The family of this 36-nucleotide RNA from Equus caballus is "XIST RNA A repeat".
RNA sequence: CAGCCCAUCGGGGCCUCGGAUACCUGCUUUUUUCCU
Number, nucleotide and partner (000 for none) at each position: 001c000002a000003g014004c013005c012006c011007a000008u000009c000010g000011g006012g005013g004014c003015c000016u000017c026018g025019g024020a000021u000022a000023c000024c019025u018026g017027c000028u000029u000030u000031u000032u000033u000034c000035c000036u000
A reference for the family is Duszczyk et al. (2011), "The Xist RNA A-repeat comprises a novel AUCG tetraloop fold and a platform for multimerization", RNA. A search with the family's covariance model found it, with a score of 45 bits.